[Rfam]
RNA sequence: CUAGAAAGAAAGCCGAAUGCUAAUUAGCAACGGGGGAGUAUCAUUGGGGUGAAUCAUUUAGUGUAGGGAAAUCCUCUUCCCGAACCCGUCAACUAACCUCGUAGGCUCGUGAGAUGAGUUAA
Numbered sequence: 001c002u003a004g005a006a007a008g009a010a011a012g013c014c015g016a017a018u019g020c021u022a023a024u025u026a027g028c029a030a031c032g033g034g035g036g037a038g039u040a041u042c043a044u045u046g047g048g049g050u051g052a053a054u055c056a057u058u059u060a061g062u063g064u065a066g067g068g069a070a071a072u073c074c075u076c077u078u079c080c081c082g083a084a085c086c087c088g089u090c091a092a093c094u095a096a097c098c099u100c101g102u103a104g105g106c107u108c109g110u111g112a113g114a115u116g117a118g119u120u121a122a
Base pairs, nucleotide, nucleotide: 011107012106013105014104018029019028020027030102031101032100033099034098035097040045047087048086049085055063056062057061066081067080068079069078
Dot-bracket structure: ..........((((...(((......)))((((((....(....).(((.....(((...)))..((((........))))...))).........)))))).))))...............

c-di-AMP riboswitch aptamer (ydaO/yuaA leader): a 122-nucleotide RNA sequence from Clostridium manihotivorum.